[Rfam]
Shown here is a 124-nucleotide RNA from Bucco capensis, a member of the family "Small nucleolar RNA ACA64". NCBI's taxonomy places the organism under Eukaryota, Vertebrata, Gnathostomata, Amniota, Bucco.
RNA sequence: ACAGUCUGGAAAUCACUUGGAGUCUCCUGUGGCUCCUGGUGCAAUAACUGUGCCGACAGCAGAGGGAGCAUAAACUCAUUGCCCACGGUAAAGUGUGCGGUGUGAAACCCAUGUUCCUAUAAUC
Numbered sequence: 001a002c003a004g005u006c007u008g009g010a011a012a013u014c015a016c017u018u019g020g021a022g023u024c025u026c027c028u029g030u031g032g033c034u035c036c037u038g039g040u041g042c043a044a045u046a047a048c049u050g051u052g053c054c055g056a057c058a059g060c061a062g063a064g065g066g067a068g069c070a071u072a073a074a075c076u077c078a079u080u081g082c083c084c085a086c087g088g089u090a091a092a093g094u095g096u097g098c099g100g101u102g103u104g105a106a107a108c109c110c111a112u113g114u115u116c117c118u119a120u121a122a123u124c
Stems, first nucleotide, its partner, number of pairs: 006050001008048001010045001014041003021034004065117001067115005076105004084097003

Its family is annotated with RNA processing and nucleolus in the Gene Ontology.
The family's RNA type in Rfam is H/ACA-box small nucleolar RNA.